[Rfam]
This 73-nucleotide RNA from Oleidesulfovibrio alaskensis belongs to the Rfam family "tRNA".
Transfer RNA (tRNA) molecules are approximately 80 nucleotides in length.
NCBI's taxonomy places the organism under Bacteria, Pseudomonadati, Thermodesulfobacteriota, Oleidesulfovibrio, Oleidesulfovibrio alaskensis.
The match comes from Rfam's covariance-model search (65 bits).
RNA sequence: UCCCUGGUAGCUCAAUCGGCAGAGCGGGUGACUGUUAAUCACUAGGUUGGCGGUUCAAGUCCGUCCCGGGGAG
Numbered sequence: 001u002c003c004c005u006g007g008u009a010g011c012u013c014a015a016u017c018g019g020c021a022g023a024g025c026g027g028g029u030g031a032c033u034g035u036u037a038a039u040c041a042c043u044a045g046g047u048u049g050g051c052g053g054u055u056c057a058a059g060u061c062c063g064u065c066c067c068g069g070g071g072a073g
Stems, first nucleotide, its partner, number of pairs: 001072007010025004027043005049065005
Dot-bracket structure: (((((((..((((........)))).(((((.......))))).....(((((.......)))))))))))).